[Rfam]
RNA sequence: AGGGGAAUCAUACAAUGGCAGUAUUGCGGUCUCCAAAACCGUUCAUGGGGGUUCGAAUCCCUCUUCCCCUG
Number, nucleotide and partner (000 for none) at each position: 001a070002g069003g068004g067005g066006a065007a064008u000009c000010a024011u023012a022013c021014a000015a000016u000017g000018g000019c000020a000021g013022u012023a011024u010025u000026g042027c041028g040029g039030u038031c000032u000033c000034c000035a000036a000037a000038a030039c029040c028041g027042u026043u000044c000045a000046u000047g063048g062049g061050g060051g059052u000053u000054c000055g000056a000057a000058u000059c051060c050061c049062u048063c047064u007065u006066c005067c004068c003069c002070u001071g000
The record is a 71-nucleotide RNA sequence from Frisingicoccus caecimuris, which matches "tRNA" in Rfam.
The organism belongs to Frisingicoccus, within Bacteria.
The family's RNA type in Rfam is transfer RNA.
Transfer RNA (tRNA) molecules are approximately 80 nucleotides in length.